[Rfam]
RNA sequence: GGGUGGCAAGAAUGAUGAAUCAAUUAGAUGUGUGAAAGGAUAAUUCCUUUUUGAACUCAAUUAUUUGAGGCAUAUUUGAUUGUCUGACUUGUUGCCU
Numbered sequence: 001g002g003g004u005g006g007c008a009a010g011a012a013u014g015a016u017g018a019a020u021c022a023a024u025u026a027g028a029u030g031u032g033u034g035a036a037a038g039g040a041u042a043a044u045u046c047c048u049u050u051u052u053g054a055a056c057u058c059a060a061u062u063a064u065u066u067g068a069g070g071c072a073u074a075u076u077u078g079a080u081u082g083u084c085u086g087a088c089u090u091g092u093u094g095c096c097u
Stems, first nucleotide, its partner, number of pairs: 001097010

This 97-nucleotide sequence from Carpinus fangiana belongs to the Rfam family "Small nucleolar RNA Z266". The literature on the family includes a 2003 paper in Nucleic Acids Res by Chen et al., "The high diversity of snoRNAs in plants: identification and comparative study of 120 snoRNA genes from Oryza sativa". Gene Ontology terms of the family: nucleolus and RNA processing. Lineage of the source: Eukaryota > Spermatophyta > rosids > fabids > Carpinus. The family's consensus secondary structure was predicted with PFOLD. By type it is a C/D-box small nucleolar RNA.